The family of this 362-nucleotide RNA from Eremococcus coleocola is "transfer-messenger RNA".
Bacterial tmRNA, also known as 10Sa RNA or SsrA, is named for its dual tRNA and mRNA-like properties. Its role is to liberate the mRNA from a stalled ribosome.
By type it is a non-coding RNA gene.
RNA sequence: GGGGGUGUACUGGUUUCGACAGAUUUCAUACGAGCUCUUGAUGCGUCAGGAAGGCAGCGACUACCUAAAAACGCUACAGUUAAAUAUAACUGCAAACAAUAAUAAUAAUUUUGCUUUAGCAGCCUAAUAACUGCUUGCAAAGAUCAGCCCGGUAUCGCCCAUGUACCGGUUCCUGGUCUCAAUUAAGUGGGAUACGAUUUAACUUUCCGUCUGCAAGUUAAGUAAGAGAUCAUCAGACUCGCGACCUCAAAUGCCUGUUGGCCGGCUAUGAGACAGCUAAAUCUUAAUAGGAUCAACUAUUGACGUAGAUUCGGGAGUGGCGGGCUUUCUGGACAGGGGUUCGAUUCCCCUCAUCUCCAUAA
Numbered sequence: 001g002g003g004g005g006u007g008u009a010c011u012g013g014u015u016u017c018g019a020c021a022g023a024u025u026u027c028a029u030a031c032g033a034g035c036u037c038u039u040g041a042u043g044c045g046u047c048a049g050g051a052a053g054g055c056a057g058c059g060a061c062u063a064c065c066u067a068a069a070a071a072c073g074c075u076a077c078a079g080u081u082a083a084a085u086a087u088a089a090c091u092g093c094a095a096a097c098a099a100u101a102a103u104a105a106u107a108a109u110u111u112u113g114c115u116u117u118a119g120c121a122g123c124c125u126a127a128u129a130a131c132u133g134c135u136u137g138c139a140a141a142g143a144u145c146a147g148c149c150c151g152g153u154a155u156c157g158c159c160c161a162u163g164u165a166c167c168g169g170u171u172c173c174u175g176g177u178c179u180c181a182a183u184u185a186a187g188u189g190g191g192a193u194a195c196g197a198u199u200u201a202a203c204u205u206u207c208c209g210u211c212u213g214c215a216a217g218u219u220a221a222g223u224a225a226g227a228g229a230u231c232a233u234c235a236g237a238c239u240c241g242c243g244a245c246c247u248c249a250a251a252u253g254c255c256u257g258u259u260g261g262c263c264g265g266c267u268a269u270g271a272g273a274c275a276g277c278u279a280a281a282u283c284u285u286a287a288u289a290g291g292a293u294c295a296a297c298u299a300u301u302g303a304c305g306u307a308g309a310u311u312c313g314g315g316a317g318u319g320g321c322g323g324g325c326u327u328u329c330u331g332g333a334c335a336g337g338g339g340u341u342c343g344a345u346u347c348c349c350c351u352c353a354u355c356u357c358c359a360u361a362a
Stems, first nucleotide, its partner, number of pairs: 001358007020331004027324001029322001034318008044305005049065002052062002054077001056075004115139001117137002119134004142178006149169007158191005197223009209239001212236001241277002246272004253266003257297004262290001335351005